[Rfam]
RNA sequence: AUUGAAUGAACCAGGUUCCCUCAUAUAUGUCCGAUAAUAUGGAUCGGAUGUCUCUACCAAGUUACCGGAAAUGACUUGACUAUGAAGGUGGAUACGGCAUGU
Numbered sequence: 001a002u003u004g005a006a007u008g009a010a011c012c013a014g015g016u017u018c019c020c021u022c023a024u025a026u027a028u029g030u031c032c033g034a035u036a037a038u039a040u041g042g043a044u045c046g047g048a049u050g051u052c053u054c055u056a057c058c059a060a061g062u063u064a065c066c067g068g069a070a071a072u073g074a075c076u077u078g079a080c081u082a083u084g085a086a087g088g089u090g091g092a093u094a095c096g097g098c099a100u101g102u
Stems, first nucleotide, its partner, number of pairs: 018088002021085005029049007058078007
The record is a 102-nucleotide sequence from Planomicrobium sp. YIM 101495, which matches "Purine riboswitch aptamer" in Rfam. Rfam's curators write: Riboswitches are metabolite binding domains within certain messenger RNAs that serve as precision sensors for their corresponding targets. NCBI's taxonomy places the organism under Bacteria, Bacillota, Caryophanales, Caryophanaceae, Planomicrobium.